[Rfam]
RNA sequence: UGAGCGGUCCAGACGGUCGCGGCUUGGGUUUUCGCCCUUGUCGAGGAACGUCCGGGCUCCAUAGGGCAGGGUGGUUGCUAACGGCAACCCGGGGUGACCCGCGGGAAAGUGCCACAGAGAACAGACCGCCGCGGCUCUUUGGGGACGCGGUAAGGGUGAAACGGUGGUGUAAGAGACCACCAGCGUCCCGGGUGACCGGGACGGCUUGGUAAACCCCACCCGGAGCAAGGUCAAAAGGGGUCUUCGGGCCCUGCGCGGAUGUUCGAGGGCUGCCCGCCCGAGUCCGCGGGUGGACCGCACGAGCCCGUCGGCGACGGCGGGCCCAGAUGGAUGGCCGUCACCGGUGAGCGGCGACGCGAUCCGGUCACAGAACCCGGCGUAUCGGGCCGCUCGUCCA
Dot-bracket structure: ((((((((((((((((((.((((..(((......)))..))))....[[[.[[[[[((((...[[[[.((((((((((.....)))))(((((....)))).)((...(((((............((((((((.((......)).))))))..)).......((((((.......)))))).(((((((((....)))))))).)..)))..)))))))))))))...((((......................((((((......((((.]]]]))))..)))))).....))))......((((((((....))))))))..........))))))).................................]]]]]]]].).))))))))))....